[Rfam]
RNA sequence: UAGUAGAUGUCACAGGCAAGGUUAAUGGAUAACUGAGCCGAAGCGAAAGCGAGUCUGAAUAGGGCGUUUAGUCUGUGGUAUCUGGACGUGAAACGGGAUGAUCUAGGCAUGGGCAGGAUGAAGCGUGGGUAACACCACGUGGAGGUCCGAACCAGUUAAGGUUGAAAACUUUUUGGAUGACCUGUGCCUAGGGGUGAAAGGCUAAUCAAAUUCCGUGAUAGCUCGUU
Numbered sequence: 001u002a003g004u005a006g007a008u009g010u011c012a013c014a015g016g017c018a019a020g021g022u023u024a025a026u027g028g029a030u031a032a033c034u035g036a037g038c039c040g041a042a043g044c045g046a047a048a049g050c051g052a053g054u055c056u057g058a059a060u061a062g063g064g065c066g067u068u069u070a071g072u073c074u075g076u077g078g079u080a081u082c083u084g085g086a087c088g089u090g091a092a093a094c095g096g097g098a099u100g101a102u103c104u105a106g107g108c109a110u111g112g113g114c115a116g117g118a119u120g121a122a123g124c125g126u127g128g129g130u131a132a133c134a135c136c137a138c139g140u141g142g143a144g145g146u147c148c149g150a151a152c153c154a155g156u157u158a159a160g161g162u163u164g165a166a167a168a169c170u171u172u173u174u175g176g177a178u179g180a181c182c183u184g185u186g187c188c189u190a191g192g193g194g195u196g197a198a199a200g201g202c203u204a205a206u207c208a209a210a211u212u213c214c215g216u217g218a219u220a221g222c223u224c225g226u227u
Stems, first nucleotide, its partner, number of pairs: 005083013020039004026035003043050002053065004087225002090222001094215006103191011114179001116148004123140006152176003158171003193203003
The record is a 227-nucleotide part of an RNA from uncultured bacterium 164, which matches "Bacterial large subunit ribosomal RNA" in Rfam.
A reference for the family is Yusupov et al. (2001), "Crystal structure of the ribosome at 5.5 A resolution", Science.
It is one of the family's seed sequences.
The family's consensus secondary structure is taken from published work.